[Rfam]
RNA: DUF3800-I RNA
RNA sequence: UUUAAAUACCAGAAGGUUUUAUCCUUCGUUCGGUCGAUAGCUAGAUAAUGAUUGAAAAAUUAAGCGUAUGUUAAGUACGUCAUUCUAGCUGGGAAGAGGCUACUUUAGUAACCUCUUUUCAUUUAGGU
Numbered sequence: 001u002u003u004a005a006a007u008a009c010c011a012g013a014a015g016g017u018u019u020u021a022u023c024c025u026u027c028g029u030u031c032g033g034u035c036g037a038u039a040g041c042u043a044g045a046u047a048a049u050g051a052u053u054g055a056a057a058a059a060u061u062a063a064g065c066g067u068a069u070g071u072u073a074a075g076u077a078c079g080u081c082a083u084u085c086u087a088g089c090u091g092g093g094a095a096g097a098g099g100c101u102a103c104u105u106u107a108g109u110a111a112c113c114u115c116u117u118u119u120c121a122u123u124u125a126g127g128u
Stems, first nucleotide, its partner, number of pairs: 008034003011029001012027005038091006047084004051060003064080006093118007101110002